[Rfam]
RNA sequence: GCUAACCUUCGGGGUAGGGUGAAAUUCCCAACCGGCGGUGAUCAAGGCUUCCAUUGACUACCUUUCGCAAGGCGUCAUUAAUGAAGUGCUUGUCAGUCCGUGACCCGUGCUUGCUGGCUUCUUCUCGUCGAACGACUGAAGCUAAUGCCGCAAGAACGGUGGACCCGGUGUGAAUCCGGGACCGACAGUAAAGUCUGGAUGGGAGAAGGCGACG
Numbered sequence: 001g002c003u004a005a006c007c008u009u010c011g012g013g014g015u016a017g018g019g020u021g022a023a024a025u026u027c028c029c030a031a032c033c034g035g036c037g038g039u040g041a042u043c044a045a046g047g048c049u050u051c052c053a054u055u056g057a058c059u060a061c062c063u064u065u066c067g068c069a070a071g072g073c074g075u076c077a078u079u080a081a082u083g084a085a086g087u088g089c090u091u092g093u094c095a096g097u098c099c100g101u102g103a104c105c106c107g108u109g110c111u112u113g114c115u116g117g118c119u120u121c122u123u124c125u126c127g128u129c130g131a132a133c134g135a136c137u138g139a140a141g142c143u144a145a146u147g148c149c150g151c152a153a154g155a156a157c158g159g160u161g162g163a164c165c166c167g168g169u170g171u172g173a174a175u176c177c178g179g180g181a182c183c184g185a186c187a188g189u190a191a192a193g194u195c196u197g198g199a200u201g202g203g204a205g206a207a208g209g210c211g212a213c214g
Base pairs, nucleotide, nucleotide: 003212006209007208008207009206010205017029018028019027031194032193033184034183035101036100037099038098105159106158107157108156164180165179166178167177168176186197187196188195
FMN riboswitch aptamer (RFN element): a 214-nucleotide RNA from Paenibacillus phyllosphaerae. The match comes from Rfam's covariance-model search (95 bits).